[Rfam]
RNA sequence: AAGCAGCACGUGAGAAUUGGAGGAAAUUAAUCCCAUUAGCAUUAGCAUUGUCAACACAGUAGUGGGUUUAAUUUCCUCCAAUAUCUCAUCUGCUGUUU
Numbered sequence: 001a002a003g004c005a006g007c008a009c010g011u012g013a014g015a016a017u018u019g020g021a022g023g024a025a026a027u028u029a030a031u032c033c034c035a036u037u038a039g040c041a042u043u044a045g046c047a048u049u050g051u052c053a054a055c056a057c058a059g060u061a062g063u064g065g066g067u068u069u070a071a072u073u074u075c076c077u078c079c080a081a082u083a084u085c086u087c088a089u090c091u092g093c094u095g096u097u098u
Stems, first nucleotide, its partner, number of pairs: 004095005011088004016082006023075008032066005
This 98-nucleotide RNA sequence from Vitis vinifera belongs to the Rfam family "MIR2275 microRNA precursor family". Gene Ontology terms of the family: miRNA-mediated post-transcriptional gene silencing and RISC complex. NCBI's taxonomy places the organism under Eukaryota, Viridiplantae, Streptophyta, Mesangiospermae, Vitis.